[Rfam]
RNA sequence: GCCGAGCUCAGCAGCGCGAGCUUGUAACCCGAGCGGGGGCAUUAAGGUGGUGUGGACGUUGCCGUAUGGCUGCGGGCCUGGGUUGGCAGUGCCAUAGAUGGCCCGCCCGUUCCAAGUUGCGUAGUUGGGCCGGCGGGGCUUGAGCGAAAGCUCUGGCCUCACGUUUCCCUAGAGUGGCAGGCAUUGCGUGAGGCUGGCUUCACAGAGCAGCGAAUACUGUCCGCUUCCAACGGUGGAAGGAUAACGGGCCGCCGCACUGCUGGCCCGCUUGGGUCUCGCAGCCUACUCCAACGGACCACCACUUUU
Numbered sequence: 001g002c003c004g005a006g007c008u009c010a011g012c013a014g015c016g017c018g019a020g021c022u023u024g025u026a027a028c029c030c031g032a033g034c035g036g037g038g039g040c041a042u043u044a045a046g047g048u049g050g051u052g053u054g055g056a057c058g059u060u061g062c063c064g065u066a067u068g069g070c071u072g073c074g075g076g077c078c079u080g081g082g083u084u085g086g087c088a089g090u091g092c093c094a095u096a097g098a099u100g101g102c103c104c105g106c107c108c109g110u111u112c113c114a115a116g117u118u119g120c121g122u123a124g125u126u127g128g129g130c131c132g133g134c135g136g137g138g139c140u141u142g143a144g145c146g147a148a149a150g151c152u153c154u155g156g157c158c159u160c161a162c163g164u165u166u167c168c169c170u171a172g173a174g175u176g177g178c179a180g181g182c183a184u185u186g187c188g189u190g191a192g193g194c195u196g197g198c199u200u201c202a203c204a205g206a207g208c209a210g211c212g213a214a215u216a217c218u219g220u221c222c223g224c225u226u227c228c229a230a231c232g233g234u235g236g237a238a239g240g241a242u243a244a245c246g247g248g249c250c251g252c253c254g255c256a257c258u259g260c261u262g263g264c265c266c267g268c269u270u271g272g273g274u275c276u277c278g279c280a281g282c283c284u285a286c287u288c289c290a291a292c293g294g295a296c297c298a299c300c301a302c303u304u305u306u
Stems, first nucleotide, its partner, number of pairs: 001040003004023006028037003044305009057293005064286003068282001070281007078273002080266008089257003093254001099251007107240002110238005116231004121227001123225003127167003131163002135160006142153004169174001176221005185214001187212003194205003
Rfam assigns this 306-nucleotide sequence from Oryza sativa to the family "Plant signal recognition particle RNA". The organism belongs to Oryza sativa, within Eukaryota. Rfam classes the family as a non-coding RNA gene. A reference for the family is Batey et al. (2000), "Crystal structure of the ribonucleoprotein core of the signal recognition particle", Science.